[Rfam]
RNA sequence: GAGCAGCUCUCUCUCUGCCCACUUGGCCACCACGCGGCAGCCGAGCGAGGGCCUCGGGGCAGCUU
Numbered sequence: 001g002a003g004c005a006g007c008u009c010u011c012u013c014u015c016u017g018c019c020c021a022c023u024u025g026g027c028c029a030c031c032a033c034g035c036g037g038c039a040g041c042c043g044a045g046c047g048a049g050g051g052c053c054u055c056g057g058g059g060c061a062g063c064u065u
Stems, first nucleotide, its partner, number of pairs: 001065004007059004017052004022045006030037002
Rfam assigns this 65-nucleotide RNA from Oryza rufipogon to the family "MIR2907 microRNA precursor family". A reference for the family is Jian et al. (2010), "Identification of novel stress-regulated microRNAs from Oryza sativa L", Genomics. Rfam 15.1 lists 136 matches to the family in 8 species. The organism belongs to Oryza, within Eukaryota. The base pairs follow the family's consensus structure, which was predicted with RNAalifold.